[Rfam]
RNA sequence: AGAGUUGGCGAGGGGGUUGCGGAUUCGUUUUAAGCGACGAAUCUGAGGAAAGUCCGGGCUCCCGAAAGACCAAACUUGCUGGAUAACGCCCAGUGUACGCGAGUGCGAGGAGAGUGCCACAGAAACAUACCGCCUUUUUUAGGUAAGGGUGCAAAGGUGCGGUAAGAGCGCACCAGCAGUAUCGUGAGGUACUGGCUCGGUAAACCCCGGUUGGGAGCAAGGUCGGAGGGACUAAGGUUGGUCUUUUCCCCGUCCCGUUUUAGGUGAACCGCAAGAGGUGUUUGGUAACAAACAUCCCAGAUAGAUAACUCCCCUCAUCGAUGGCAACAUCUAUGAAGAACAGAACCCGGCUUAUGUCCAACUCUCUCC
Number, nucleotide and partner (000 for none) at each position: 001a365002g364003a363004g362005u361006u360007g359008g358009c000010g000011a355012g313013g312014g311015g310016g309017u308018u307019g000020c045021g044022g043023a042024u041025u040026c039027g038028u037029u000030u000031u000032a000033a000034g000035c000036g000037a028038c027039g026040a025041a024042u023043c022044u021045g020046a000047g000048g000049a000050a353051a352052g351053u000054c350055c349056g348057g347058g346059c217060u216061c215062c214063c000064g000065a000066a000067a000068g249069a000070c000071c000072a000073a212074a211075c210076u000077u209078g208079c093080u092081g091082g090083a000084u000085a000086a000087c000088g000089c000090c082091c081092a080093g079094u108095g106096u105097a104098c103099g000100c000101g000102a000103g098104u097105g096106c095107g000108a094109g207110g206111a000112g000113a000114g205115u204116g201117c200118c199119a000120c000121a000122g000123a000124a000125a000126c000127a000128u000129a000130c148131c147132g144133c143134c142135u141136u000137u000138u000139u000140u000141a135142g134143g133144u132145a000146a000147g131148g130149g000150u000151g000152c000153a000154a000155a000156g174157g173158u172159g171160c170161g169162g000163u000164a000165a000166g000167a000168g000169c161170g160171c159172a158173c157174c156175a000176g196177c194178a193179g192180u191181a190182u189183c188184g000185u000186g000187a000188g183189g182190u181191a180192c179193u178194g177195g000196c176197u000198c000199g118200g117201u116202a000203a000204a115205c114206c110207c109208c078209g077210g075211u074212u073213g000214g062215g061216a060217g059218c000219a000220a000221g270222g269223u268224c000225g000226g000227a000228g000229g000230g000231a261232c000233u000234a258235a000236g256237g000238u000239u000240g255241g254242u000243c252244u000245u000246u000247u000248c000249c068250c000251c000252g243253u000254c241255c240256c236257g000258u234259u000260u000261u231262a000263g000264g000265u000266g000267a000268a223269c222270c221271g000272c000273a000274a000275g000276a000277g296278g295279u294280g293281u292282u291283u290284g289285g000286u000287a000288a000289c284290a283291a282292a281293c280294a279295u278296c277297c000298c000299a000300g000301a000302u000303a000304g000305a000306u000307a018308a017309c016310u015311c014312c013313c012314c000315u000316c000317a000318u000319c000320g000321a000322u000323g000324g000325c000326a000327a000328c000329a000330u000331c000332u000333a000334u000335g000336a000337a000338g000339a000340a000341c000342a000343g000344a000345a000346c058347c057348c056349g055350g054351c052352u051353u050354a000355u011356g000357u000358c008359c007360a006361a005362c004363u003364c002365u001366c000367u000368c000369c000
Rfam assigns this 369-nucleotide RNA from Gloeothece citriformis to the family "Bacterial RNase P class A". The organism belongs to Gloeothece citriformis, within Bacteria. The sequence is in the family's curated seed alignment.